[Rfam]
RNA sequence: ACGAGGAUGAUGAAAACAAUCAUUCGGAUUCCCAAUGAUUUUCUCUUCGUAAUGGUUUUUAUUCGAAGAGGAUUGUGAUCUUAAAUUCCUGUUUGACUCGU
Numbered sequence: 001a002c003g004a005g006g007a008u009g010a011u012g013a014a015a016a017c018a019a020u021c022a023u024u025c026g027g028a029u030u031c032c033c034a035a036u037g038a039u040u041u042u043c044u045c046u047u048c049g050u051a052a053u054g055g056u057u058u059u060u061a062u063u064c065g066a067a068g069a070g071g072a073u074u075g076u077g078a079u080c081u082u083a084a085a086u087u088c089c090u091g092u093u094u095g096a097c098u099c100g101u
Stems, first nucleotide, its partner, number of pairs: 001101005
Dot-bracket structure: (((((...........................................................................................)))))
RNA: Small nucleolar RNA R12